[Rfam]
RNA sequence: GGCAGAUGAUGUGAAAGAAUAUUUGCUAUCUGAGUGAUGGUGAGGACGUUCCUGACCACCAAGAUUUAUUACCUUUUUCAUCAUGUC
Numbered sequence: 001g002g003c004a005g006a007u008g009a010u011g012u013g014a015a016a017g018a019a020u021a022u023u024u025g026c027u028a029u030c031u032g033a034g035u036g037a038u039g040g041u042g043a044g045g046a047c048g049u050u051c052c053u054g055a056c057c058a059c060c061a062a063g064a065u066u067u068a069u070u071a072c073c074u075u076u077u078u079c080a081u082c083a084u085g086u087c
Stems, first nucleotide, its partner, number of pairs: 001087004